[Rfam]
RNA sequence: AUCGACAAUAGCAAACUUGGUGAAAGCCAAGGACGCAAAGCUAUGGGUCUUCCAGGAAACACCUGAUGAUUGCCAAGCUACCGAAC
Numbered sequence: 001a002u003c004g005a006c007a008a009u010a011g012c013a014a015a016c017u018u019g020g021u022g023a024a025a026g027c028c029a030a031g032g033a034c035g036c037a038a039a040g041c042u043a044u045g046g047g048u049c050u051u052c053c054a055g056g057a058a059a060c061a062c063c064u065g066a067u068g069a070u071u072g073c074c075a076a077g078c079u080a081c082c083g084a085a086c
Stems, first nucleotide, its partner, number of pairs: 003083002011036002016031006034072001039079004044075003047070003

A member of the RNA family "c-di-GMP-I-GGC riboswitch aptamer" from Desulfitobacterium dichloroeliminans, 86 nucleotides long. The organism belongs to Desulfitobacterium dichloroeliminans, within Bacteria.